RNA sequence: CGUGCUGCUGUCAGUAACAAGGAUUCAUCCUGUUGUGAUGCUGAAAGCUGACAGGAGAUCACUGUUACUGGGGACACACAU
Numbered sequence: 001c002g003u004g005c006u007g008c009u010g011u012c013a014g015u016a017a018c019a020a021g022g023a024u025u026c027a028u029c030c031u032g033u034u035g036u037g038a039u040g041c042u043g044a045a046a047g048c049u050g051a052c053a054g055g056a057g058a059u060c061a062c063u064g065u066u067a068c069u070g071g072g073g074a075c076a077c078a079c080a081u
Stems, first nucleotide, its partner, number of pairs: 011071009022060004029055007037048001039046001

A member of the RNA family "mir-459 microRNA precursor family" from Amphiprion ocellaris, 81 nucleotides long. The match comes from Rfam's covariance-model search (82 bits). Pairs were carried over by alignment from the consensus structure, which was predicted with RNAalifold.